[Rfam]
RNA sequence: UGGUCAUUACCAAGGCUGCUAGGAUGUUGCUGUUUCUGGUGAGCUGUGGACAUGACCAUAAAACAAUCCCAUCAGACCCUUAAGUUGCCACACAAUGUGGCACCAAGUCUGCUGGGAACAAAG
Number, nucleotide and partner (000 for none) at each position: 001u000002g000003g056004u055005c054006a053007u052008u000009a000010c049011c048012a047013a000014g000015g000016c000017u000018g000019c000020u000021a000022g000023g000024a000025u000026g000027u000028u000029g044030c043031u042032g000033u000034u000035u000036c000037u000038g000039g000040u000041g000042a031043g030044c029045u000046g000047u012048g011049g010050a000051c000052a007053u006054g005055a004056c003057c000058a000059u000060a000061a000062a000063a000064c000065a000066a000067u000068c116069c115070c114071a113072u000073c000074a000075g109076a108077c107078c000079c000080u000081u000082a000083a000084g000085u000086u102087g101088c100089c099090a098091c000092a000093c000094a000095a000096u000097g000098u090099g089100g088101c087102a086103c000104c000105a000106a000107g077108u076109c075110u000111g000112c000113u071114g070115g069116g068117a000118a000119c000120a000121a000122a000123g000
The family of this 123-nucleotide RNA from Colius striatus is "Small nucleolar RNA SNORA32".
Rfam describes the family as follows. ACA32 is a member of the H/ACA class of snoRNA that guide the sites of modification of uridines to pseudouridines.
Taxonomically the source falls in Colius (Eukaryota, Vertebrata, Aves, Telluraves).
Its family is annotated with RNA processing and nucleolus in the Gene Ontology.
It scores 66 bits against the family's covariance model.
Rfam classes the family as an H/ACA-box small nucleolar RNA.